[Rfam]
The record is a 40-nucleotide RNA, which matches "L31-Actinobacteria ribosomal protein leader" in Rfam. It is annotated as a cis-regulatory leader. A reference for the family is Eckert and Weinberg (2020), "Discovery of 20 novel ribosomal leader candidates in bacteria and archaea", BMC Microbiol. Pairs were carried over by alignment from the consensus structure, which is taken from published work.
RNA sequence: GCGGUACCGGUUCCCGUCCUUCGGGGGCGACCCGGCGACC
Numbered sequence: 001g002c003g004g005u006a007c008c009g010g011u012u013c014c015c016g017u018c019c020u021u022c023g024g025g026g027g028c029g030a031c032c033c034g035g036c037g038a039c040c
Stems, first nucleotide, its partner, number of pairs: 003040003007035004015029006